[Rfam]
RNA sequence: AUCUAUCUUCGGGGCAGGGUGUAAUUCCCGACCGGCGGUGAUAAACAAAUUGUUUUAAGCCCGCGAGCUCUUUAAAUGUGGAGCAGGAUUUGGUGUGAUUCCAAAGCCGACAGUAAAGUCUGGAUGGGAGAAGGUGGAG
Number, nucleotide and partner (000 for none) at each position: 001a000002u000003c137004u136005a135006u134007c133008u132009u131010c130011g000012g000013g000014g000015c000016a000017g029018g028019g027020u000021g000022u000023a000024a000025u000026u000027c019028c018029c017030g000031a119032c118033c109034g108035g064036c063037g062038g061039u000040g000041a000042u000043a000044a000045a000046c000047a000048a000049a000050u000051u000052g000053u000054u000055u000056u000057a000058a000059g107060c106061c038062c037063g036064c035065g000066a000067g084068c083069u082070c000071u000072u000073u000074a000075a000076a000077u000078g000079u000080g000081g000082a069083g068084c067085a000086g000087g000088a000089u105090u104091u103092g102093g101094u000095g000096u000097g000098a000099u000100u000101c093102c092103a091104a090105a089106g060107c059108c034109g033110a000111c122112a121113g120114u000115a000116a000117a000118g032119u031120c113121u112122g111123g000124a000125u000126g000127g000128g000129a000130g010131a009132a008133g007134g006135u005136g004137g003138a000139g000
RNA: FMN riboswitch aptamer (RFN element)
Organism: Priestia veravalensis